This 172-nucleotide sequence from Brassica oleracea belongs to the Rfam family "small nucleolar RNA snoR143". The match comes from Rfam's covariance-model search (98 bits). The family has 3 seed sequences and 660 matches in Rfam 15.1. NCBI's taxonomy places the organism under Eukaryota, Viridiplantae, Spermatophyta, Gunneridae, Brassica oleracea. By type it is an H/ACA-box small nucleolar RNA. Rfam links the family to the GO terms RNA processing and nucleolus.
Nucleotides: 172
Base pairs, nucleotide, nucleotide: 002062003061004060005059009054010053016050017049018048019046020045021044022043023042024041025040026039027038106166107165108164109163110162111161112160113159123147
Number, partner (000 for none) and nucleotide at each position: 001000u002062u003061g004060c005059a006000c007000c008000u009054u010053g011000u012000a013000u014000c015000u016050a017049a018048a019046g020045g021044u022043c023042a024041u025040g026039c027038c028000u029000c030000g031000u032000u033000c034000u035000g036000g037000u038027g039026g040025c041024a042023u043022g044021g045020c046019c047000a048018u049017u050016u051000u052000u053010c054009g055000a056000g057000g058000a059005u060004g061003c062002g063000u064000a065000g066000a067000g068000g069000a070000a071000u072000u073000g074000c075000u076000g077000u078000u079000a080000a081000g082000u083000c084000c085000g086000u087000a088000a089000g090000c091000g092000g093000c094000c095000a096000g097000a098000c099000a100000a101000c102000c103000g104000u105000u106166g107165g108164g109163a110162u111161a112160g113159a114000u115000c116000c117000a118000c119000a120000g121000g122000u123147g124000u125000u126000a127000u128000g129000c130000g131000g132000u133000u134000u135000c136000u137000c138000u139000c140000u141000c142000c143000g144000c145000u146000c147123u148000c149000a150000g151000c152000u153000a154000c155000u156000a157000a158000a159113u160112c161111u162110a163109u164108c165107c166106c167000a168000c169000a170000a171000u172000u